[Rfam]
RNA: Archaeal large subunit ribosomal RNA, nucleotides 2091 to 2669
Organism: Methanocella conradii
RNA sequence: CCCCUAAUGGGAAGUGAAGACCCCGUGGAGCUUUACUGCAACCUGUCAUUGGGUUACGGCCGCCGGUGUGCAGCGUAGAUAGGACCCGUCUGAAACCCCCUCGCCAGGGGGGGUGGAGGGGCUGUUGAGACACUAUCCUCCGGCGACUGCGACCCUAACCCUGGUGGGGACACUGAUAGGCGGGCAGUUUGGCUGGGGCGGCACGCCCUCGAAAAGGUAUCGAUGGCGCCCUAAGGUCAACUCAACCCGGUCAGAAACCGGGCGUGGAGUGUAAAGGCACAAGUUGGCUUGACACGAAGCCGCACAACAAGGCUUCGUGAGACGAAAGUCGGGCUUAACGAACCAAUGCGCCCUAAGUGUGAGGGCCAUUGAUGUCAGAAAAGCUACCCCGGGGAUAACAGAGUCGUCGCCGGCAAGAGUACAUAUCGACCCGGCGGCUUGCUACCUCGAUGUCGGUUCUUUCCAUCCUGGCCGUGCAGCAGCGGCCAAGGGUGAGGUUGUUCGCCUAUUAAAGGAGAUCGUGAGCUGGGUUUAGACCGUCGUGAGACAGGUCGGUUACUAUCUGUUAGGGGUGCAAAG
Numbered sequence: 001c002c003c004c005u006a007a008u009g010g011g012a013a014g015u016g017a018a019g020a021c022c023c024c025g026u027g028g029a030g031c032u033u034u035a036c037u038g039c040a041a042c043c044u045g046u047c048a049u050u051g052g053g054u055u056a057c058g059g060c061c062g063c064c065g066g067u068g069u070g071c072a073g074c075g076u077a078g079a080u081a082g083g084a085c086c087c088g089u090c091u092g093a094a095a096c097c098c099c100c101u102c103g104c105c106a107g108g109g110g111g112g113g114u115g116g117a118g119g120g121g122c123u124g125u126u127g128a129g130a131c132a133c134u135a136u137c138c139u140c141c142g143g144c145g146a147c148u149g150c151g152a153c154c155c156u157a158a159c160c161c162u163g164g165u166g167g168g169g170a171c172a173c174u175g176a177u178a179g180g181c182g183g184g185c186a187g188u189u190u191g192g193c194u195g196g197g198g199c200g201g202c203a204c205g206c207c208c209u210c211g212a213a214a215a216g217g218u219a220u221c222g223a224u225g226g227c228g229c230c231c232u233a234a235g236g237u238c239a240a241c242u243c244a245a246c247c248c249g250g251u252c253a254g255a256a257a258c259c260g261g262g263c264g265u266g267g268a269g270u271g272u273a274a275a276g277g278c279a280c281a282a283g284u285u286g287g288c289u290u291g292a293c294a295c296g297a298a299g300c301c302g303c304a305c306a307a308c309a310a311g312g313c314u315u316c317g318u319g320a321g322a323c324g325a326a327a328g329u330c331g332g333g334c335u336u337a338a339c340g341a342a343c344c345a346a347u348g349c350g351c352c353c354u355a356a357g358u359g360u361g362a363g364g365g366c367c368a369u370u371g372a373u374g375u376c377a378g379a380a381a382a383g384c385u386a387c388c389c390c391g392g393g394g395a396u397a398a399c400a401g402a403g404u405c406g407u408c409g410c411c412g413g414c415a416a417g418a419g420u421a422c423a424u425a426u427c428g429a430c431c432c433g434g435c436g437g438c439u440u441g442c443u444a445c446c447u448c449g450a451u452g453u454c455g456g457u458u459c460u461u462u463c464c465a466u467c468c469u470g471g472c473c474g475u476g477c478a479g480c481a482g483c484g485g486c487c488a489a490g491g492g493u494g495a496g497g498u499u500g501u502u503c504g505c506c507u508a509u510u511a512a513a514g515g516a517g518a519u520c521g522u523g524a525g526c527u528g529g530g531u532u533u534a535g536a537c538c539g540u541c542g543u544g545a546g547a548c549a550g551g552u553c554g555g556u557u558a559c560u561a562u563c564u565g566u567u568a569g570g571g572g573u574g575c576a577a578a579g
Base pairs, nucleotide, nucleotide: 001572002571003570004569005568006567007566008565010564011563012562014559015558022393023392024391025390027389028388029385030384031383032382033381035188036187037186038185042180043179044178045177046176047175048174051155052154053153054152055151057149058148059147061145062144063143064142065141066140068138078137079136080135081134082133085120086119087118098111099110100109101108102107159168160167161166191204192202193201194200205227206226207225209223210222230333231332236288237287238286239285240284241283242268243267246262247261248260249259250258269278270277293319294318295317296316297315298314299313300312301311321330323328344371345370346369347368348367350366351365352364353363354362402443403442404441406440407437408436409435410434411433412432413431417427418426454529455527456526457525458524459521460518461517462516463515464514467492468491471486472485473484474483475482495507496506497505498504535553536552537551538550539548540547541546